[Rfam]
Rfam assigns this 51-nucleotide RNA from Strongylocentrotus purpuratus to the family "Guanidine-II riboswitch aptamer (mini-ykkC)". It scores 38 bits against the family's covariance model. Rfam 15.1 lists 1,589 matches to the family in 1,229 species. Pairs were carried over by alignment from the consensus structure, which is taken from published work.
RNA sequence: GAGGGGGGACGACCCCCCCCCCCCUAAUAAAUUGAGGGGGACGUGUCCCCC
Numbered sequence: 001g002a003g004g005g006g007g008g009a010c011g012a013c014c015c016c017c018c019c020c021c022c023c024c025u026a027a028u029a030a031a032u033u034g035a036g037g038g039g040g041a042c043g044u045g046u047c048c049c050c051c
Stems, first nucleotide, its partner, number of pairs: 001020001003018006036051005